[Rfam]
RNA sequence: GGCUCAAUGAUUGUUGCCAAUCACAUUUGGUCAUAUAUGCUAUUCUGAUUUCUAUUGGUGAAAACGAAUUUAUGAGAGCU
Numbered sequence: 001g002g003c004u005c006a007a008u009g010a011u012u013g014u015u016g017c018c019a020a021u022c023a024c025a026u027u028u029g030g031u032c033a034u035a036u037a038u039g040c041u042a043u044u045c046u047g048a049u050u051u052c053u054a055u056u057g058g059u060g061a062a063a064a065c066g067a068a069u070u071u072a073u074g075a076g077a078g079c080u
Stems, first nucleotide, its partner, number of pairs: 001080005
Record summary: A member of the RNA family "Small nucleolar RNA U54" from Oryza sativa, 80 nucleotides long. The literature on the family includes a 2003 paper in Nucleic Acids Res by Chen et al., "The high diversity of snoRNAs in plants: identification and comparative study of 120 snoRNA genes from Oryza sativa". It is annotated as a C/D-box small nucleolar RNA. Rfam links the family to the GO terms RNA processing and nucleolus. The organism belongs to Oryza sativa, within Eukaryota. Rfam's curators write: U54 is a C/D box small nucleolar RNA, which acts as a methylation guide for 18S ribosomal RNA in plants.